Nucleotides: 095
Stems, first nucleotide, its partner, number of pairs: 006083005011046004016040001017032005051076004057070004
Number, partner (000 for none) and nucleotide at each position: 001000u002000c003000c004000a005000c006083g007082c008081a009080c010079u011046g012045c013044g014043g015000g016040u017032g018031c019030u020029u021028g022000c023000u024000u025000c026000g027000u028021c029020a030019g031018g032017c033000u034000g035000a036000g037000a038000a039000a040016a041000c042000a043014c044013c045012g046011c047000c048000g049000a050000a051076c052075u053074c054073g055000a056000c057070c058069a059068a060067g061000a062000u063000a064000a065000u066000a067060c068059u069058u070057g071000c072000g073054u074053g075052a076051g077000a078000a079010a080009g081008u082007g083006c084000a085000c086000a087000u088000u089000c090000u091000a092000a093000u094000u095000a